Background: Small nucleolar RNA SNORD10: a 135-nucleotide RNA sequence from Pteropus alecto. A search with the family's covariance model found it, with a score of 120 bits. The family has 22 seed sequences and 433 matches in Rfam 15.1. The family's consensus secondary structure was predicted with WAR. By type it is a C/D-box small nucleolar RNA.
RNA sequence: GCUCUGUGAUGAACCCCAUGCGUGUCAUCUGAGCCUGGCUUCCCUGUUGCAGCUCAGGUAGUGUUCUACUUCCCCGGGCUGUUUGGCCUGACAGGGGUGACCCAGGCAAAGGAUCAAUCUUAGAAUUCUGAGAGC
Numbered sequence: 001g002c003u004c005u006g007u008g009a010u011g012a013a014c015c016c017c018a019u020g021c022g023u024g025u026c027a028u029c030u031g032a033g034c035c036u037g038g039c040u041u042c043c044c045u046g047u048u049g050c051a052g053c054u055c056a057g058g059u060a061g062u063g064u065u066c067u068a069c070u071u072c073c074c075c076g077g078g079c080u081g082u083u084u085g086g087c088c089u090g091a092c093a094g095g096g097g098u099g100a101c102c103c104a105g106g107c108a109a110a111g112g113a114u115c116a117a118u119c120u121u122a123g124a125a126u127u128c129u130g131a132g133a134g135c
Stems, first nucleotide, its partner, number of pairs: 001135004042096008